Overview
Shown here is a 91-nucleotide RNA sequence from Bacillus sp. MRMR6, a member of the family "pan motif".
RNA sequence: CGGGCGGUAUCCAUGUGAGCUGCACCUUUCUGUAGGAAAACUAACUAAAAAGGUUUCUGCCUAGAUCCGUAGUACGGACCGGGACAGAGGG
Number, nucleotide and partner (000 for none) at each position: 001c000002g026003g025004g023005c022006g021007g020008u019009a000010u018011c017012c000013a000014u000015g000016u000017g011018a010019g008020c007021u006022g005023c004024a000025c003026c002027u000028u000029u000030c000031u000032g000033u000034a000035g000036g000037a000038a000039a000040a000041c000042u000043a000044a000045c000046u000047a000048a000049a000050a000051a000052g000053g000054u000055u000056u000057c087058u086059g085060c083061c082062u081063a000064g079065a000066u078067c077068c076069g000070u000071a000072g000073u000074a000075c000076g068077g067078a066079c064080c000081g062082g061083g060084a000085c059086a058087g057088a000089g000090g000091g000
It is annotated as a cis-regulatory element. Taxonomically the source falls in Bacillus (Bacteria, Bacillati, Bacillota, Bacillaceae). It scores 56 bits against the family's covariance model.